[Rfam]
RNA sequence: ACCAAAAAUACAUACUUCUUUACAUUCCAUAACUUUUGUAUGUUCAUAUGGGUACAUAAAGAAGUAUGUACCCCGGGC
Numbered sequence: 001a002c003c004a005a006a007a008a009u010a011c012a013u014a015c016u017u018c019u020u021u022a023c024a025u026u027c028c029a030u031a032a033c034u035u036u037u038g039u040a041u042g043u044u045c046a047u048a049u050g051g052g053u054a055c056a057u058a059a060a061g062a063a064g065u066a067u068g069u070a071c072c073c074c075g076g077g078c
Stems, first nucleotide, its partner, number of pairs: 009070014027051005